[Rfam]
RNA sequence: UCUGGGCAGCGUAGCGACUGUCUGUAACCCGAGCGGGAGUAGGAGAGAUGGGAGCUGGGGCUCUCGCUGAGGACCGCUGGGAUCAUGUCGAAGGCACGUCCACUCGAAGCGUGGAGUCCUGGUCCGGGGUCCUCCGCGGAAGCGAGAGGAGUCUGGGGAGAUGAUGCGGAAGGCACAGCGUGAGGCGGGCGACCGAGCAUCUAUCACUUCCCGCUCUGCGCAGUCGAGGGACAGCGUGCUUGAAUGCUUGCCAGCGAUCAUCCGAAGUGAUCAGCCUUCUGCCACCUCUCUC
Numbered sequence: 001u002c003u004g005g006g007c008a009g010c011g012u013a014g015c016g017a018c019u020g021u022c023u024g025u026a027a028c029c030c031g032a033g034c035g036g037g038a039g040u041a042g043g044a045g046a047g048a049u050g051g052g053a054g055c056u057g058g059g060g061c062u063c064u065c066g067c068u069g070a071g072g073a074c075c076g077c078u079g080g081g082a083u084c085a086u087g088u089c090g091a092a093g094g095c096a097c098g099u100c101c102a103c104u105c106g107a108a109g110c111g112u113g114g115a116g117u118c119c120u121g122g123u124c125c126g127g128g129g130u131c132c133u134c135c136g137c138g139g140a141a142g143c144g145a146g147a148g149g150a151g152u153c154u155g156g157g158g159a160g161a162u163g164a165u166g167c168g169g170a171a172g173g174c175a176c177a178g179c180g181u182g183a184g185g186c187g188g189g190c191g192a193c194c195g196a197g198c199a200u201c202u203a204u205c206a207c208u209u210c211c212c213g214c215u216c217u218g219c220g221c222a223g224u225c226g227a228g229g230g231a232c233a234g235c236g237u238g239c240u241u242g243a244a245u246g247c248u249u250g251c252c253a254g255c256g257a258u259c260a261u262c263c264g265a266a267g268u269g270a271u272c273a274g275c276c277u278u279c280u281g282c283c284a285c286c287u288c289u290c291u292c
Base pairs, nucleotide, nucleotide: 002039003038004023005022006021007020008019009018028037029036030035043292044291045290046289047288048287050285052283057279058277059276060275061274062273064270065269066268067267068266071263072262073261075256076255077254078253079252080251082249086243092241093240094239095238096237097236098235099234100230101229103228104227105226106225107224109221110220111219112218113217114216115215116214117213119160120159123157124156125155126154127153128152130150131149132148133147134146135144136143137142168211169210170209171208172207177204180201186195187194188193
RNA: Plant signal recognition particle RNA